The record is an 85-nucleotide sequence from Dendrobium nobile, which matches "Small nucleolar RNA SNORD25" in Rfam. Rfam 15.1 lists 985 matches to the family in 241 species. It scores 79 bits against the family's covariance model. Clan: SNORD25 clan. Pairs were carried over by alignment from the consensus structure, which was predicted with PFOLD. Its family is annotated with nucleolus and RNA processing in the Gene Ontology.
[Rfam]
Nucleotides: 085
Base pairs, nucleotide, nucleotide: 002084003083004082005081006080
Number, partner (000 for none) and nucleotide at each position: 001000a002084a003083c004082a005081a006080c007000u008000g009000u010000g011000a012000u013000g014000a015000u016000c017000c018000u019000a020000c021000a022000g023000a024000c025000c026000u027000g028000u029000a030000a031000u032000g033000a034000g035000u036000u037000u038000u039000g040000c041000g042000g043000a044000c045000a046000u047000g048000a049000u050000c051000g052000c053000a054000u055000a056000a057000u058000u059000u060000a061000a062000g063000a064000a065000c066000a067000u068000c069000u070000a071000a072000g073000g074000g075000a076000c077000u078000g079000a080006g081005u082004u083003g084002u085000a